The family of this 132-nucleotide RNA sequence from Solanum tuberosum is "Small nucleolar RNA snoR77". By type it is an H/ACA-box small nucleolar RNA.
[Rfam]
RNA sequence: AGGCAGCCCCUUUUCUAUAAUUGAUGGGAAGGGAGGUGUUACUCUGCUCGUAAAUUGAAUUCGUUUAUGCUCUUCAGAUUUGCUGAGAUAUAUUUAUAUCUUUGAAGCUGGUCUAGUAAGCUUAAGCACAAU
Numbered sequence: 001a002g003g004c005a006g007c008c009c010c011u012u013u014u015c016u017a018u019a020a021u022u023g024a025u026g027g028g029a030a031g032g033g034a035g036g037u038g039u040u041a042c043u044c045u046g047c048u049c050g051u052a053a054a055u056u057g058a059a060u061u062c063g064u065u066u067a068u069g070c071u072c073u074u075c076a077g078a079u080u081u082g083c084u085g086a087g088a089u090a091u092a093u094u095u096a097u098a099u100c101u102u103u104g105a106a107g108c109u110g111g112u113c114u115a116g117u118a119a120g121c122u123u124a125a126g127c128a129c130a131a132u
Stems, first nucleotide, its partner, number of pairs: 002040004007036002009033009064126003069121003076114005082108003087100003

Rfam 15.1 lists 649 matches to the family in 221 species. Pairs were carried over by alignment from the consensus structure, which was predicted with WAR.